The family of this 61-nucleotide sequence from Pristionchus pacificus is "mir-8364 microRNA precursor family". The match comes from Rfam's covariance-model search (72 bits). Rfam 15.1 lists 3,320 matches to the family in 2 species. Taxonomically the source falls in Pristionchus (Eukaryota, Bilateria, Rhabditida, Rhabditina). Its family is annotated with miRNA-mediated post-transcriptional gene silencing and RISC complex in the Gene Ontology.
RNA sequence: UCCUCAUUUCUCGUGCUCUCUCGCCGGGCAGAGAGGCGAGAGAGUGUGCGAAAUGGCGAGA
Numbered sequence: 001u002c003c004u005c006a007u008u009u010c011u012c013g014u015g016c017u018c019u020c021u022c023g024c025c026g027g028g029c030a031g032a033g034a035g036g037c038g039a040g041a042g043a044g045u046g047u048g049c050g051a052a053a054u055g056g057c058g059a060g061a
Stems, first nucleotide, its partner, number of pairs: 001059002004056004010050001012048006019041004